[Rfam]
RNA: Glycine riboswitch aptamer
RNA sequence: AUGAAUGCAAGGGGAGAGUUUACUGGAUUGCGCAGUAACGCCGAAGGAGCAAGCGGAAGCGAAUCUCUCAGGCAAAAAGACUCUUGCAGGACG
Numbered sequence: 001a002u003g004a005a006u007g008c009a010a011g012g013g014g015a016g017a018g019u020u021u022a023c024u025g026g027a028u029u030g031c032g033c034a035g036u037a038a039c040g041c042c043g044a045a046g047g048a049g050c051a052a053g054c055g056g057a058a059g060c061g062a063a064u065c066u067c068u069c070a071g072g073c074a075a076a077a078a079g080a081c082u083c084u085u086g087c088a089g090g091a092c093g
Base pairs, nucleotide, nucleotide: 006088007087008086009085010084011083012082013081020038021037022036023035024034025033040073041072042071043069044068047067048066049065053060054059